Annotation: A member of the RNA family "6S / SsrS RNA" from Peptoniphilus lacrimalis, 181 nucleotides long. The family's consensus secondary structure is taken from published work. Rfam 15.1 lists 5,006 matches to the family in 4,638 species. About the family: E. coli 6S RNA was the first non coding RNA to be sequenced, but its function was unknown until recently. By type it is a non-coding RNA gene. The match comes from Rfam's covariance-model search (87 bits). The organism belongs to Peptoniphilus lacrimalis, within Bacteria.
RNA sequence: AGAUAUCUGCGGUGUACGCGUUAGUUCCAGUUAAUUCAACCGACAAAUCAGACACGGGAAACUGUGUUUAAGGUCCUAUGGCAAGCCUCCAUAGAGAGGAAGUCAGAAUACCUUAAUAAGUUACCCACCUUAUUUUUAGGGCGGGUCUGAAUUAAUGGGCAAGCGGCAUUGCGGAUUUUUU
Numbered sequence: 001a002g003a004u005a006u007c008u009g010c011g012g013u014g015u016a017c018g019c020g021u022u023a024g025u026u027c028c029a030g031u032u033a034a035u036u037c038a039a040c041c042g043a044c045a046a047a048u049c050a051g052a053c054a055c056g057g058g059a060a061a062c063u064g065u066g067u068u069u070a071a072g073g074u075c076c077u078a079u080g081g082c083a084a085g086c087c088u089c090c091a092u093a094g095a096g097a098g099g100a101a102g103u104c105a106g107a108a109u110a111c112c113u114u115a116a117u118a119a120g121u122u123a124c125c126c127a128c129c130u131u132a133u134u135u136u137u138a139g140g141g142c143g144g145g146u147c148u149g150a151a152u153u154a155a156u157g158g159g160c161a162a163g164c165g166g167c168a169u170u171g172c173g174g175a176u177u178u179u180u181u
Stems, first nucleotide, its partner, number of pairs: 002179002005176011017165003031155004036150003039146003056126003060122004067116001069115006081103002086099004